[Rfam]
RNA sequence: UAGAGAAGUCAAUGAUGGUUUUAUUCAUAUCGUCUGAACCUGUCUGAAGCAUCUCAGUGAUGCAAUCUCUGUGUGGUUCUGAGACUUCUCCA
Dot-bracket structure: ...(((((((........................................................................)))))))...
Numbered sequence: 001u002a003g004a005g006a007a008g009u010c011a012a013u014g015a016u017g018g019u020u021u022u023a024u025u026c027a028u029a030u031c032g033u034c035u036g037a038a039c040c041u042g043u044c045u046g047a048a049g050c051a052u053c054u055c056a057g058u059g060a061u062g063c064a065a066u067c068u069c070u071g072u073g074u075g076g077u078u079c080u081g082a083g084a085c086u087u088c089u090c091c092a
Stems, first nucleotide, its partner, number of pairs: 004089007

Annotation: The family of this 92-nucleotide RNA is "Small nucleolar RNA SNORD91 family". On this family, see Huttenhofer et al., EMBO J 2001: "RNomics: an experimental approach that identifies 201 candidates for novel, small, non-messenger RNAs in mouse". Rfam's curators put it in the seed alignment.